[Rfam]
Notes
A member of the RNA family "No-known vector Flavivirus exoribonuclease-resistant RNA element" from Orthoflavivirus modocense, 82 nucleotides long. The organism belongs to Orthoflavivirus modocense, within Viruses. It is one of the family's seed sequences. About the family: The exoribonuclease-resistant RNA elements (xrRNA) are described throughout all groups of flaviviruses. Rfam classes the family as a cis-regulatory element.
RNA sequence: GAGUGUUGAGGGCAACCAGUGGGCUAGCCACAUGGGUAUGACGCACCCACCCUCUGCAUUCUUGUAAAUACUUUGGCCAGUC
Numbered sequence: 001g002a003g004u005g006u007u008g009a010g011g012g013c014a015a016c017c018a019g020u021g022g023g024c025u026a027g028c029c030a031c032a033u034g035g036g037u038a039u040g041a042c043g044c045a046c047c048c049a050c051c052c053u054c055u056g057c058a059u060u061c062u063u064g065u066a067a068a069u070a071c072u073u074u075g076g077c078c079a080g081u082c
Base pairs, nucleotide, nucleotide: 001061002060003059004058005057008054009053010052011051012050019031020030021029022028033049034048035047036046